[Rfam]
RNA sequence: UAGCCGCAGGAUGAAGUGAGCGGGCCUAACCAGCCCUGGAAAGUCCCCGGGCCCCAUGCGCAGCGAUGCGCCCACGGAGAACGUGGACGGCCCAUGAGCCGGCUCUCCCCGCCUCGGCGGGGGGCUGAGACGAGUGUGGAGCCCAAUCACAGGGGGCCGGCUCUGGGUCAAUUGGCUAAUCUCACAGUUAUUCACUUGGUCCGUAAUGGAUUAACAGAACGGGGCUUACACUCCUGUGGCA
Number, nucleotide and partner (000 for none) at each position: 001u000002a000003g240004c239005c238006g237007c236008a235009g234010g233011a232012u000013g000014a197015a196016g195017u194018g193019a192020g000021c000022g036023g035024g034025c033026c000027u000028a000029a000030c000031c000032a000033g025034c024035c023036c022037u000038g000039g000040a000041a227042a226043g225044u000045c224046c223047c222048c221049g000050g000051g000052c000053c000054c000055c000056a000057u000058g000059c070060g069061c068062a067063g000064c000065g000066a000067u062068g061069c060070g059071c000072c086073c085074a084075c083076g082077g000078a000079g000080a000081a000082c076083g075084u074085g073086g072087a000088c000089g169090g168091c167092c000093c000094a000095u000096g000097a162098g161099c160100c159101g158102g157103c000104u000105c000106u000107c155108c154109c153110c152111g000112c000113c000114u000115c000116g000117g000118c000119g000120g000121g000122g144123g143124g142125c141126u000127g000128a000129g000130a000131c000132g137133a000134g000135u000136g000137u132138g000139g000140a000141g125142c124143c123144c122145a000146a000147u000148c000149a000150c000151a000152g110153g109154g108155g107156g000157c102158c101159g100160g099161c098162u097163c000164u000165g000166g000167g091168u090169c089170a000171a000172u000173u000174g000175g000176c000177u000178a000179a000180u000181c000182u000183c000184a000185c000186a000187g000188u000189u000190a000191u000192u019193c018194a017195c016196u015197u014198g000199g211200u210201c209202c208203g207204u000205a000206a000207u203208g202209g201210a200211u199212u000213a000214a000215c000216a000217g000218a000219a000220c000221g048222g047223g046224g045225c043226u042227u041228a000229c000230a000231c000232u011233c010234c009235u008236g007237u006238g005239g004240c003241a000
The record is a 241-nucleotide sequence from Triticum aestivum, which matches "RNase MRP" in Rfam.
The family's consensus secondary structure is taken from published work.